[Rfam]
RNA: Small nucleolar RNA snoR53Y
Organism: Genlisea aurea
RNA sequence: GUUUCCGGUGAUGGUUGCUUUACUCUAAGCCAUGCUAAUUCUGAUCAUAUAUGGAUGUGAUCGAAACAGAAUGUCUCUGAUGGAACA
Number, nucleotide and partner (000 for none) at each position: 001g086002u085003u084004u083005c082006c000007g000008g000009u000010g000011a000012u000013g000014g000015u000016u000017g000018c000019u000020u000021u000022a000023c000024u000025c000026u000027a000028a000029g000030c000031c000032a000033u000034g000035c000036u000037a000038a000039u000040u000041c000042u000043g000044a000045u000046c000047a000048u000049a000050u000051a000052u000053g000054g000055a000056u000057g000058u000059g000060a000061u000062c000063g000064a000065a000066a000067c000068a000069g000070a000071a000072u000073g000074u000075c000076u000077c000078u000079g000080a000081u000082g005083g004084a003085a002086c001087a000